Background
The record is a 124-nucleotide RNA sequence from Kosakonia cowanii, which matches "Pseudoknot of the regulatory region of the repBA gene" in Rfam. Gene Ontology term of the family: translation. Rfam classes the family as a cis-regulatory element. The base pairs follow the family's consensus structure, which is taken from published work. NCBI's taxonomy places the organism under Bacteria, Pseudomonadota, Enterobacterales, Enterobacteriaceae, Kosakonia cowanii. On this family, see Athanasopoulos et al., J Bacteriol 1995: "The replication of an IncL/M plasmid is subject to antisense control".
RNA sequence: AACCCCCCGAAAUCUGUUUAGCAACUUGGCGGAAGCAGCAGAUAUCAGGGGGUCCAAAAGCAGGCGCAGCGCCUGCGAAGGAUUAUAACGCAUGCACCACAUAAAACAACAUACGGCCGCCAUA
Numbered sequence: 001a002a003c004c005c006c007c008c009g010a011a012a013u014c015u016g017u018u019u020a021g022c023a024a025c026u027u028g029g030c031g032g033a034a035g036c037a038g039c040a041g042a043u044a045u046c047a048g049g050g051g052g053u054c055c056a057a058a059a060g061c062a063g064g065c066g067c068a069g070c071g072c073c074u075g076c077g078a079a080g081g082a083u084u085a086u087a088a089c090g091c092a093u094g095c096a097c098c099a100c101a102u103a104a105a106a107c108a109a110c111a112u113a114c115g116g117c118c119g120c121c122a123u124a
Stems, first nucleotide, its partner, number of pairs: 002053006009046002013042004018038002021036002027119004032114001